[Rfam]
RNA sequence: UGCACUGGUUAGUUUUGCUGGUUUGCAUCUAGCUUUUUGAGCGGUUGCUGUGCAAAUCCAUGCAAAACUGAUCAUGGCG
Numbered sequence: 001u002g003c004a005c006u007g008g009u010u011a012g013u014u015u016u017g018c019u020g021g022u023u024u025g026c027a028u029c030u031a032g033c034u035u036u037u038u039g040a041g042c043g044g045u046u047g048c049u050g051u052g053c054a055a056a057u058c059c060a061u062g063c064a065a066a067a068c069u070g071a072u073c074a075u076g077g078c079g
Base pairs, nucleotide, nucleotide: 003077006074007073008072009071010070011069012068013067014066015065016064017063018062020059021058022056023055024054025053026052027051028050031049032048033047
This 79-nucleotide sequence from Denticeps clupeoides belongs to the Rfam family "mir-19 microRNA precursor family". Its family is annotated with miRNA-mediated post-transcriptional gene silencing and RISC complex in the Gene Ontology. Lineage of the source: Eukaryota > Deuterostomia > Craniata > Teleostei > Denticeps. For this family Rfam cites "Identification of novel genes coding for small expressed RNAs" (Lagos-Quintana et al., Science, 2001). It scores 74 bits against the family's covariance model. The family has 106 seed sequences and 2,337 matches in Rfam 15.1.